The record is a 77-nucleotide RNA sequence from Pedionomus torquatus, which matches "ctgf/hcs24 CAESAR" in Rfam.

RNA sequence: ACGGAGACAUGGCGUAAAGCCCAGAAGGAGACGCUUUUAACUAGAUUCUCAACUUGAACUGAUUUGCAUCUACUUUG
Number, nucleotide and partner (000 for none) at each position: 001a000002c000003g000004g000005a071006g070007a069008c000009a000010u000011g021012g020013c019014g000015u000016a000017a000018a000019g013020c012021c011022c000023a000024g000025a000026a000027g067028g000029a065030g064031a000032c000033g000034c000035u000036u000037u000038u000039a000040a000041c000042u000043a000044g000045a000046u000047u000048c000049u000050c000051a000052a000053c000054u000055u000056g000057a000058a000059c000060u000061g000062a000063u000064u030065u029066g000067c027068a000069u007070c006071u005072a000073c000074u000075u000076u000077g000
For this family Rfam cites "Involvement of cis-acting repressive element(s) in the 3'-untranslated region of human connective tissue growth factor gene" (Kubota et al., FEBS Lett, 1999). Rfam classes the family as a cis-regulatory element. Lineage of the source: Eukaryota > Dipnotetrapodomorpha > Archelosauria > Pedionomidae > Pedionomus. The family's consensus secondary structure is taken from published work. The 3' UTR of human connective tissue growth factor/hypertrophic chondrocyte specific 24 (ctgf/hcs24) mRNA has been shown to repress ctgf gene expression. Reference identified a minimal RNA element, predicted to form a stable secondary structure, which acts as a post-transcriptional cis-acting element of structure-anchored repression (CAESAR), probably through direct interactions with as yet unknown nuclear factors.